[Rfam]
RNA sequence: UGUGACGAGUGUCAGCGUCAAGCCCCGGCUUGCUGACCGGCAACCCUCCUCCGCGGUGGGGUGCCCCGGGUGAAACACACGGCCGGGCCCGACCGGGACCCGGCAAGCGCGGGUC
Numbered sequence: 001u002g003u004g005a006c007g008a009g010u011g012u013c014a015g016c017g018u019c020a021a022g023c024c025c026c027g028g029c030u031u032g033c034u035g036a037c038c039g040g041c042a043a044c045c046c047u048c049c050u051c052c053g054c055g056g057u058g059g060g061g062u063g064c065c066c067c068g069g070g071u072g073a074a075a076c077a078c079a080c081g082g083c084c085g086g087g088c089c090c091g092a093c094c095g096g097g098a099c100c101c102g103g104c105a106a107g108c109g110c111g112g113g114u115c
Stems, first nucleotide, its partner, number of pairs: 001079004009038001011037006021030002039065003044061003048056002082104006088097003
The family of this 115-nucleotide RNA from Microlunatus soli is "SAM (S-adenosyl methionine) riboswitch aptamer".
A search with the family's covariance model found it, with a score of 105 bits.
The family's consensus secondary structure is taken from published work.